[Rfam]
RNA: Small nucleolar RNA Z247
RNA sequence: AAGGUGAUAGAUGAUGAUGGGAUGGCUCACUUUAUUUUAAAUGGUCUUGACAUUGAUUAUAAUCCAUUUCUAUCAUCUAUGCUUGGUUGUGUUGGAUCUAUUUGUUUGAGUGAUCUAUACUCUCAAUUGUUGUCCUAUGACA
Numbered sequence: 001a002a003g004g005u006g007a008u009a010g011a012u013g014a015u016g017a018u019g020g021g022a023u024g025g026c027u028c029a030c031u032u033u034a035u036u037u038u039a040a041a042u043g044g045u046c047u048u049g050a051c052a053u054u055g056a057u058u059a060u061a062a063u064c065c066a067u068u069u070c071u072a073u074c075a076u077c078u079a080u081g082c083u084u085g086g087u088u089g090u091g092u093u094g095g096a097u098c099u100a101u102u103u104g105u106u107u108g109a110g111u112g113a114u115c116u117a118u119a120c121u122c123u124c125a126a127u128u129g130u131u132g133u134c135c136u137a138u139g140a141c142a
Stems, first nucleotide, its partner, number of pairs: 004141002007138002091111003095107002